[Rfam]
RNA sequence: AACAGUGAUAGCAGUGGCAGUAUCAUAACCAAUGAAGUUAAUCUGAGGUGUGAUGAUUGCUAGUUGAAAACUUUCCUGUGGGAUAUUUUUGAGUGCUUUGUCUUGCUAGAACAUUCACAUUUUCUAAGUGUAAAUGAAGUUU
Numbered sequence: 001a002a003c004a005g006u007g008a009u010a011g012c013a014g015u016g017g018c019a020g021u022a023u024c025a026u027a028a029c030c031a032a033u034g035a036a037g038u039u040a041a042u043c044u045g046a047g048g049u050g051u052g053a054u055g056a057u058u059g060c061u062a063g064u065u066g067a068a069a070a071c072u073u074u075c076c077u078g079u080g081g082g083a084u085a086u087u088u089u090u091g092a093g094u095g096c097u098u099u100g101u102c103u104u105g106c107u108a109g110a111a112c113a114u115u116c117a118c119a120u121u122u123u124c125u126a127a128g129u130g131u132a133a134a135u136g137a138a139g140u141u142u
Stems, first nucleotide, its partner, number of pairs: 022054005028049003036044002090117006097110004132142003
This 142-nucleotide RNA from Chelonoidis abingdonii belongs to the Rfam family "U4 spliceosomal RNA". On this family, see Zwieb, Nucleic Acids Res 1997: "The uRNA database". U4 small nuclear RNA (U4 snRNA) is a component of the major U2-dependent spliceosome. The base pairs follow the family's consensus structure, which is taken from published work. Its family is annotated with spliceosomal tri-snRNP complex assembly and U4 snRNP in the Gene Ontology. The family's RNA type in Rfam is spliceosomal small nuclear RNA. It scores 58 bits against the family's covariance model.